[Rfam]
RNA sequence: GCAGCAGCAGCAGCAGCAGCUGCUGCUGCUGCUGCUGCUGCUGCAGCUGCUGCAGCUGCUGCUGCUGCUGCAGCUGCUGCAGCUGCUGCAGCUGCAGCUGCAGCUGCUGCUGCUGCAGCUGCUGCUGCUGCUGCUGCUGCAGCUGCUGCUGCUGCUGCUGCAGCUGCUGCUGCAGCUGCUGCUGCUGCUGCAGCUGCUGC
Numbered sequence: 001g002c003a004g005c006a007g008c009a010g011c012a013g014c015a016g017c018a019g020c021u022g023c024u025g026c027u028g029c030u031g032c033u034g035c036u037g038c039u040g041c042u043g044c045a046g047c048u049g050c051u052g053c054a055g056c057u058g059c060u061g062c063u064g065c066u067g068c069u070g071c072a073g074c075u076g077c078u079g080c081a082g083c084u085g086c087u088g089c090a091g092c093u094g095c096a097g098c099u100g101c102a103g104c105u106g107c108u109g110c111u112g113c114u115g116c117a118g119c120u121g122c123u124g125c126u127g128c129u130g131c132u133g134c135u136g137c138u139g140c141a142g143c144u145g146c147u148g149c150u151g152c153u154g155c156u157g158c159u160g161c162a163g164c165u166g167c168u169g170c171u172g173c174a175g176c177u178g179c180u181g182c183u184g185c186u187g188c189u190g191c192a193g194c195u196g197c198u199g200c
Stems, first nucleotide, its partner, number of pairs: 001200008011190007025041002028038002031035001042081005050073003054069003058065001082179002085176008094167006101160004106155002109152002112119002124149002130143005
This 200-nucleotide RNA from Symbiodinium necroappetens belongs to the Rfam family "isrG Hfq binding RNA". It scores 112 bits against the family's covariance model. The organism belongs to Symbiodinium, within Eukaryota. Pairs were carried over by alignment from the consensus structure, which was predicted with RNAalifold.